[Rfam]
About this RNA:
The family of this 114-nucleotide sequence from Flavobacterium sp. CS20 is "Group II catalytic intron D1-D4-2". Lineage of the source: Bacteria > Bacteroidota > Flavobacteriia > Flavobacteriaceae > Flavobacterium. Its family is annotated with Group II intron splicing in the Gene Ontology. Rfam describes the family as follows. Group II introns are found in rRNA, tRNA and mRNA of organelles in fungi, plants and protists, and also in mRNA in bacteria. A search with the family's covariance model found it, with a score of 57 bits.
RNA sequence: GAGGAUUGGUCUCUCGACUGGGAGUGAUUAGGCAUACCAGUCAAACCGCCUUAUGGGGCUUACCUUUCACGGGAUGGUCUUGAGCGAUAAGGUUAAAGGCGCUACCGCUUUUGU
Numbered sequence: 001g002a003g004g005a006u007u008g009g010u011c012u013c014u015c016g017a018c019u020g021g022g023a024g025u026g027a028u029u030a031g032g033c034a035u036a037c038c039a040g041u042c043a044a045a046c047c048g049c050c051u052u053a054u055g056g057g058g059c060u061u062a063c064c065u066u067u068c069a070c071g072g073g074a075u076g077g078u079c080u081u082g083a084g085c086g087a088u089a090a091g092g093u094u095a096a097a098g099g100c101g102c103u104a105c106c107g108c109u110u111u112u113g114u
Stems, first nucleotide, its partner, number of pairs: 001015004016042006024035003047113001049092006055081002058078003063073003097110005